RNA sequence: CAAAAGGGCUUCUGCCAUGUCUAGCACAGGGAGGGUGAGGGACUCUCACCCACCUUGCGGAAUCGCCAUCAAGGGAUUUCGGAAGCAUAAUUUUUAACAACAGAGGCUGCUGGUGAUCUCAUGUCCCGGCGCCUCC
Number, nucleotide and partner (000 for none) at each position: 001c000002a000003a000004a000005a000006g000007g000008g086009c085010u084011u083012c082013u026014g025015c024016c000017a022018u000019g000020u000021c000022u017023a000024g015025c014026a013027c057028a056029g055030g054031g053032a000033g051034g050035g049036u048037g047038a046039g045040g000041g000042a000043c000044u000045c039046u038047c037048a036049c035050c034051c033052a000053c031054c030055u029056u028057g027058c081059g080060g079061a078062a077063u076064c075065g000066c000067c000068a000069u000070c000071a000072a000073g000074g000075g064076a063077u062078u061079u060080c059081g058082g012083a011084a010085g009086c008087a000088u000089a000090a000091u000092u000093u000094u000095u000096a000097a000098c000099a000100a000101c000102a000103g000104a134105g133106g132107c131108u000109g130110c129111u128112g127113g126114u000115g125116a124117u123118c000119u000120c000121a000122u000123g117124u116125c115126c113127c112128g111129g110130c109131g107132c106133c105134u104135c000136c000
The family of this 136-nucleotide RNA sequence from Kryptolebias marmoratus is "U11 spliceosomal RNA". The literature on the family includes a 1988 paper in Proc Natl Acad Sci U S A by Montzka and Steitz, "Additional low-abundance human small nuclear ribonucleoproteins: U11, U12, etc". The family's consensus secondary structure is taken from published work.